[Rfam]
RNA sequence: UCCGGGGGAAGCUCACCGCCGAGGCCAGCACGGGGUGCGCGUCACCCUCGGCCGCCUCGGGGAAGGUCUGAGGGAAGGGCCUCUGGGCGGCCCCAGCAGGGCCCCGCCCGGCCGGGCGGGUGAGCCACCAGCAAGGGGCGGCGCCGCGCGGGCCUCGCACGGGCAGGAGACGCCGCGGGCCGGGCGGCCCCGGCCGAUGCUCCGGCCCCGCGGAGCUCUGAGACAGACUCACGGCCGGCUGCGCUGAGUCCAAUGGGUGGGGUGGGGCACCGCCCCAUAACCCAAUUCAGACUACUCUCCCCCGGA
Number, nucleotide and partner (000 for none) at each position: 001u306002c305003c304004g303005g000006g000007g300008g299009a298010a000011g000012c261013u260014c259015a258016c257017c256018g000019c000020c059021g058022a057023g056024g055025c000026c000027a000028g000029c000030a000031c000032g000033g047034g046035g045036u044037g043038c000039g000040c000041g000042u000043c037044a036045c035046c034047c033048u000049c000050g000051g000052c000053c000054g000055c024056c023057u022058c021059g020060g000061g000062g000063a000064a000065g000066g000067u000068c290069u289070g288071a287072g286073g000074g000075a000076a000077g000078g236079g235080c234081c233082u000083c000084u000085g000086g000087g000088c000089g103090g102091c101092c100093c099094c000095a000096g000097c000098a000099g093100g092101g091102c090103c089104c119105c118106g117107c116108c115109c114110g000111g000112c000113c000114g109115g108116g107117c106118g105119g104120g232121u231122g230123a229124g228125c000126c226127a000128c000129c000130a000131g000132c000133a000134a000135g000136g000137g000138g000139c000140g217141g216142c215143g000144c000145c000146g000147c000148g000149c000150g000151g000152g000153c000154c000155u000156c000157g000158c000159a000160c000161g000162g000163g000164c000165a000166g000167g000168a000169g000170a000171c000172g000173c000174c000175g000176c000177g000178g000179g000180c000181c000182g000183g000184g000185c000186g000187g000188c000189c000190c000191c000192g000193g000194c000195c000196g000197a000198u000199g000200c000201u000202c000203c000204g000205g000206c000207c000208c000209c000210g000211c000212g000213g000214a000215g142216c141217u140218c000219u000220g000221a000222g000223a000224c000225a000226g126227a000228c124229u123230c122231a121232c120233g081234g080235c079236c078237g000238g000239c000240u000241g000242c000243g000244c000245u000246g000247a000248g000249u000250c000251c000252a000253a000254u000255g000256g017257g016258u015259g014260g013261g012262g278263u277264g276265g275266g274267g273268c272269a000270c000271c000272g268273c267274c266275c265276c264277a263278u262279a000280a000281c000282c000283c000284a000285a000286u072287u071288c070289a069290g068291a000292c000293u000294a000295c000296u000297c000298u009299c008300c007301c000302c000303c004304g003305g002306a001
RNA: Nuclear RNase P
Organism: Furnarius figulus